[Rfam]
RNA sequence: UUACCAGACGCUUUAGCUAUUGAGCUGUUGUCCCUCUCUGUCAAAGAACAAAUUGUUCUCUGUCAGAGAGUGACAAAACAGUUCAAUAGCUAAAGCGUCUAGUAAC
Numbered sequence: 001u002u003a004c005c006a007g008a009c010g011c012u013u014u015a016g017c018u019a020u021u022g023a024g025c026u027g028u029u030g031u032c033c034c035u036c037u038c039u040g041u042c043a044a045a046g047a048a049c050a051a052a053u054u055g056u057u058c059u060c061u062g063u064c065a066g067a068g069a070g071u072g073a074c075a076a077a078a079c080a081g082u083u084c085a086a087u088a089g090c091u092a093a094a095g096c097g098u099c100u101a102g103u104a105a106c
Base pairs, nucleotide, nucleotide: 001105002104003103004102006100011095012094013093014092015091016090017089018088019087020086021085022084023083024082025081026080027079028078029065030064032062047057048056049055050054

Notes:
The family of this 106-nucleotide RNA from Plutella xylostella is "mir-8517 microRNA precursor family". The source organism's lineage runs through Eukaryota, Hexapoda, Endopterygota, Plutellidae and Plutella. It scores 90 bits against the family's covariance model. The base pairs follow the family's consensus structure, which was predicted with RNAalifold. Rfam links the family to the GO terms miRNA-mediated post-transcriptional gene silencing and RISC complex.